Notes: Rfam assigns this 134-nucleotide RNA sequence from Myotis lucifugus to the family "Small nucleolar RNA SNORA48". By type it is an H/ACA-box small nucleolar RNA.
RNA sequence: AACCCCUGGCAGUGGACAAGGAGACACCUGUUUGGUGGUGUUGCUCUUAUAUUGGUCAAGGGCAAAGCAGUGCAUCCUAGCUUGAUGCCUGUGUGUGUUGGUGACCAGAGCUGUUUCAUACCUGGGGCACAUAA
Number, nucleotide and partner (000 for none) at each position: 001a000002a000003c062004c061005c060006c000007u058008g057009g000010c000011a000012g000013u054014g053015g052016a000017c000018a000019a048020g047021g046022a000023g042024a041025c040026a039027c038028c037029u000030g000031u000032u000033u000034g000035g000036u000037g028038g027039u026040g025041u024042u023043g000044c000045u000046c021047u020048u019049a000050u000051a000052u015053u014054g013055g000056u000057c008058a007059a000060g005061g004062g003063c000064a000065a000066a000067g000068c000069a000070g000071u127072g000073c125074a000075u000076c000077c000078u000079a000080g000081c000082u000083u000084g122085a000086u120087g000088c000089c000090u118091g117092u000093g116094u000095g114096u113097g112098u000099u110100g000101g000102u000103g000104a000105c000106c000107a000108g000109a000110g099111c000112u097113g096114u095115u000116u093117c091118a090119u000120a086121c000122c084123u000124g000125g073126g000127g071128c000129a000130c000131a000132u000133a000134a000
The family is grouped with related families in Rfam's "SNORA48 clan". Pairs were carried over by alignment from the consensus structure, which was predicted with RNAalifold. Rfam describes the family as follows. The snoRNA ACA 48 has been identified to guide pseudouridylation of the residue U3797 in the 28S rRNA subunit. The match comes from Rfam's covariance-model search (50 bits).